The family of this 88-nucleotide RNA from Virgibacillus pantothenticus is "BsrC".
Rfam describes the family as follows. The 301 nucleotide sequence from Kouji Nakamura has been trimmed to a highly conserved ~85 nucleotide long core to form this family.
For this family Rfam cites "Novel small RNA-encoding genes in the intergenic regions of Bacillus subtilis" (Saito et al., Gene, 2008).
Rfam 15.1 lists 572 matches to the family in 553 species.
Pairs were carried over by alignment from the consensus structure, which was predicted with CMfinder.
A search with the family's covariance model found it, with a score of 75 bits.
The family's RNA type in Rfam is small RNA.
RNA sequence: UCUAACUUAAACAACGUAAGCCCUACCUGCUCUUACGUCCUUGCGACCCCGAAGCCGCGCCAGUGUGAAUAAGCAUGGUCAAAAACAU
Dot-bracket structure: ...................................((..((((((.(......).))))..))..)).....................